The record is a 136-nucleotide sequence from Dichanthelium oligosanthes, which matches "Small nucleolar RNA snoR77" in Rfam. The literature on the family includes a 2002 paper in Curr Biol by Marker et al., "Experimental RNomics: identification of 140 candidates for small non-messenger RNAs in the plant Arabidopsis thaliana". The source organism's lineage runs through Eukaryota, Streptophyta, Euphyllophyta, Panicoideae and Dichanthelium.
RNA sequence: AGGCAGCCCCUUUUUCCGAUCUCAAUGGCAAUGGAGGUGUUGCGUUUCUCGGAGAACAAAUCUUUUGAUCUUCAGGUCAGCUGAGAGGGGAUCACUUUCCUUUGUUGAGGCUGUUCUAGUAAGUCUCAAGAACAAC
Numbered sequence: 001a002g003g004c005a006g007c008c009c010c011u012u013u014u015u016c017c018g019a020u021c022u023c024a025a026u027g028g029c030a031a032u033g034g035a036g037g038u039g040u041u042g043c044g045u046u047u048c049u050c051g052g053a054g055a056a057c058a059a060a061u062c063u064u065u066u067g068a069u070c071u072u073c074a075g076g077u078c079a080g081c082u083g084a085g086a087g088g089g090g091a092u093c094a095c096u097u098u099c100c101u102u103u104g105u106u107g108a109g110g111c112u113g114u115u116c117u118a119g120u121a122a123g124u125c126u127c128a129a130g131a132a133c134a135a136c
Stems, first nucleotide, its partner, number of pairs: 002041004007037002009034002012031002015028002062130003067125003074117003078113001080111003085103006
Gene Ontology terms of the family: RNA processing and nucleolus.